[Rfam]
The family of this 82-nucleotide RNA sequence from Leptolyngbya sp. FACHB-321 is "Group II catalytic intron D1-D4-1". Rfam describes the family as follows. Group II introns are found in rRNA, tRNA and mRNA of organelles in fungi, plants and protists, and also in mRNA in bacteria. Rfam links the family to the GO term Group II intron splicing.

Nucleotides: 082
Stems, first nucleotide, its partner, number of pairs: 004023001006021006041048002050082003059075006
Number, partner (000 for none) and nucleotide at each position: 001000c002000c003000c004023g005000a006021c007020a008019g009018g010017a011016g012000g013000a014000a015000a016011c017010u018009c019008c020007u021006g022000c023004c024000g025000u026000c027000c028000a029000g030000c031000c032000u033000u034000a035000c036000a037000g038000a039000a040000g041048u042047c043000a044000g045000c046000a047042g048041a049000g050082u051081c052080c053000a054000u055000a056000g057000u058000a059075g060074u061073u062072c063071c064070c065000c066000u067000u068000g069000u070064g071063g072062g073061a074060g075059c076000g077000a078000a079000g080052g081051g082050a
The pairing is the family consensus, mapped onto this sequence.